Source information: A member of the RNA family "mir-2796 microRNA precursor family" from Thrips palmi, 77 nucleotides long.
[Rfam]
RNA sequence: GCUCGGGGGAAGGGGUUUCUUUCGGCCUUCAGCUAUUUGAGAGCCUGUAGGCCGGCGGAAACUACUUGCCCCCGGGC
Numbered sequence: 001g002c003u004c005g006g007g008g009g010a011a012g013g014g015g016u017u018u019c020u021u022u023c024g025g026c027c028u029u030c031a032g033c034u035a036u037u038u039g040a041g042a043g044c045c046u047g048u049a050g051g052c053c054g055g056c057g058g059a060a061a062c063u064a065c066u067u068g069c070c071c072c073c074g075g076g077c
Base pairs, nucleotide, nucleotide: 005073006072007071008070011067012066013065014063015062016061017060018059019058020057022055023054024053025052026051027050028049030047031046032045